[Rfam]
RNA sequence: CUCUUAUCAAGAGCAGGUCGAGGGACUAGCCCGAUGACACCCGGCAACCGACAAUCCUUUGCGAGCAUCCAAGAUGCGACGAACAAGUGAAGGAAUGCACGGUGCUAAUUCUUGCGGAGGCUGUUUUACAGCUUCUGAGAGAUGAGAG
Numbered sequence: 001c002u003c004u005u006a007u008c009a010a011g012a013g014c015a016g017g018u019c020g021a022g023g024g025a026c027u028a029g030c031c032c033g034a035u036g037a038c039a040c041c042c043g044g045c046a047a048c049c050g051a052c053a054a055u056c057c058u059u060u061g062c063g064a065g066c067a068u069c070c071a072a073g074a075u076g077c078g079a080c081g082a083a084c085a086a087g088u089g090a091a092g093g094a095a096u097g098c099a100c101g102g103u104g105c106u107a108a109u110u111c112u113u114g115c116g117g118a119g120g121c122u123g124u125u126u127u128a129c130a131g132c133u134u135c136u137g138a139g140a141g142a143u144g145a146g147a148g
Base pairs, nucleotide, nucleotide: 001148002147003146004145005144006143007142008141013042016041017040018039022032023031024030026114028112029111043106044105045104046103048102049101050098110140115137116136117135118134119133120132121131122130123129
Shown here is a 148-nucleotide sequence from Paenibacillus cremeus, a member of the family "SAM riboswitch aptamer (S box leader)". The family has 457 seed sequences and 9,625 matches in Rfam 15.1.